RNA sequence: GAUCACGCCGCAGUCUGGAAGCCGGCCUGUCCCCCGCCGCACCAGGCUGGGCAAAGGCCUAUCCCCCUCUCCGGGCCUUUGCUCUCUCCUUGAACCGCCACGGCUCGAUCCCCUCCCGGCCGUGGCGGUUUUUC
Numbered sequence: 001g002a003u004c005a006c007g008c009c010g011c012a013g014u015c016u017g018g019a020a021g022c023c024g025g026c027c028u029g030u031c032c033c034c035c036g037c038c039g040c041a042c043c044a045g046g047c048u049g050g051g052c053a054a055a056g057g058c059c060u061a062u063c064c065c066c067c068u069c070u071c072c073g074g075g076c077c078u079u080u081g082c083u084c085u086c087u088c089c090u091u092g093a094a095c096c097g098c099c100a101c102g103g104c105u106c107g108a109u110c111c112c113c114u115c116c117c118g119g120c121c122g123u124g125g126c127g128g129u130u131u132u133u134c
Stems, first nucleotide, its partner, number of pairs: 014046005024038003049084011092130001095128011
Background: Rfam assigns this 134-nucleotide sequence from Rhizobium deserti to the family "Alphaproteobacterial sRNA ar7". The base pairs follow the family's consensus structure. A search with the family's covariance model found it, with a score of 92 bits.